[Rfam]
RNA sequence: AAAAAGGGCUUCUGCCGUGCGUGGCACGGGGGGGCUGCGCGCUACCCCCGCGGAAUCGACAUCAAGAGAUUUCGGAAGCACAAUUUUUGUGGGGGAGGGCAGCUGGUAACCGUCUGUUCCGGCACCCCG
Numbered sequence: 001a002a003a004a005a006g007g008g009c010u011u012c013u014g015c016c017g018u019g020c021g022u023g024g025c026a027c028g029g030g031g032g033g034g035c036u037g038c039g040c041g042c043u044a045c046c047c048c049c050g051c052g053g054a055a056u057c058g059a060c061a062u063c064a065a066g067a068g069a070u071u072u073c074g075g076a077a078g079c080a081c082a083a084u085u086u087u088u089g090u091g092g093g094g095g096a097g098g099g100c101a102g103c104u105g106g107u108a109a110c111c112g113u114c115u116g117u118u119c120c121g122g123c124a125c126c127c128c129g
Base pairs, nucleotide, nucleotide: 008079009078010077011076012075013026014025015024016023017022027050028049029048030047031046032045034043036041051074052073053072054071055070056069057068097127098126099125102123103122104121105120106119108118109117110116

This 129-nucleotide RNA sequence from Orthonyx spaldingii belongs to the Rfam family "U11 spliceosomal RNA". Taxonomically the source falls in Orthonyx (Eukaryota, Metazoa, Dipnotetrapodomorpha, Sauria). The match comes from Rfam's covariance-model search (107 bits). The family's RNA type in Rfam is spliceosomal small nuclear RNA.